[Rfam]
RNA: mir-451 microRNA precursor family
Organism: Petromyzon marinus
RNA sequence: GGGGGAGUGGCGACAAAACCGUUACCAUUAUUGUAACCAAUAAUGGUAAGGGUUCUCUUGCUGCUCCCCGC
Dot-bracket structure: ......(((.(((...((((.((((((((((((....)))))))))))).))))...))).))).......
Numbered sequence: 001g002g003g004g005g006a007g008u009g010g011c012g013a014c015a016a017a018a019c020c021g022u023u024a025c026c027a028u029u030a031u032u033g034u035a036a037c038c039a040a041u042a043a044u045g046g047u048a049a050g051g052g053u054u055c056u057c058u059u060g061c062u063g064c065u066c067c068c069c070g071c
Stems, first nucleotide, its partner, number of pairs: 007064003011060003017054004022049012